[Rfam]
RNA sequence: CAAAGAAAAUAUUUAAAAACUUAUAUAUACCUUGAAUAUGGCAAGGAGUAUCUACCAGAAACCUUAAAUUUCUGACUAUGAGUGAUAUUAAUAUAUUA
Numbered sequence: 001c002a003a004a005g006a007a008a009a010u011a012u013u014u015a016a017a018a019a020c021u022u023a024u025a026u027a028u029a030c031c032u033u034g035a036a037u038a039u040g041g042c043a044a045g046g047a048g049u050a051u052c053u054a055c056c057a058g059a060a061a062c063c064u065u066a067a068a069u070u071u072c073u074g075a076c077u078a079u080g081a082g083u084g085a086u087a088u089u090a091a092u093a094u095a096u097u098a
Stems, first nucleotide, its partner, number of pairs: 019083007030046005056074006